[Rfam]
RNA sequence: GGAUCGAUGAAGAGAACAAUUCCCUGAGAACGCUGAGGGACUGAUUUUAGAUGUCUUUAUGAUGUUC
Dot-bracket structure: ((((...........................................................))))
The family of this 67-nucleotide sequence from Heterocephalus glaber is "Small nucleolar RNA SNORD109A".
The base pairs follow the family's consensus structure, which was predicted with WAR.
The match comes from Rfam's covariance-model search (56 bits).
The literature on the family includes a 2001 paper in Hum Mol Genet by Runte et al., "The IC-SNURF-SNRPN transcript serves as a host for multiple small nucleolar RNA species and as an antisense RNA for UBE3A".
Rfam's curators write: Humans have two copies of the SNORD109 gene, SNORD109A and SNORD109B.
Rfam links the family to the GO terms nucleolus and RNA processing.